[Rfam]
Rfam assigns this 173-nucleotide sequence from Kitasatospora atroaurantiaca to the family "c-di-AMP riboswitch aptamer (ydaO/yuaA leader)".
RNA sequence: GGCACUCGAGCACCGAACACGGACAGGAGCGGGGGAACCAGGUCAGUCUGCCGUGCCCCCGCGCCUGUCCAGGCGUGGGGAUGCGGCUCGGGGUGAAGCCGUCCUGCGGGCGGCCGGGCUUCCUCAGGGCCCGAACCCGACAGCUCACCUCGCAGGCGUCGCAGAGGACUCCC
Numbered sequence: 001g002g003c004a005c006u007c008g009a010g011c012a013c014c015g016a017a018c019a020c021g022g023a024c025a026g027g028a029g030c031g032g033g034g035g036a037a038c039c040a041g042g043u044c045a046g047u048c049u050g051c052c053g054u055g056c057c058c059c060c061g062c063g064c065c066u067g068u069c070c071a072g073g074c075g076u077g078g079g080g081a082u083g084c085g086g087c088u089c090g091g092g093g094u095g096a097a098g099c100c101g102u103c104c105u106g107c108g109g110g111c112g113g114c115c116g117g118g119c120u121u122c123c124u125c126a127g128g129g130c131c132c133g134a135a136c137c138c139g140a141c142a143g144c145u146c147a148c149c150u151c152g153c154a155g156g157c158g159u160c161g162c163a164g165a166g167g168a169c170u171c172c173c
Stems, first nucleotide, its partner, number of pairs: 011158001013156002020026001029153006039090001091138003099113004116132004
It scores 56 bits against the family's covariance model. The pairing is the family consensus, mapped onto this sequence.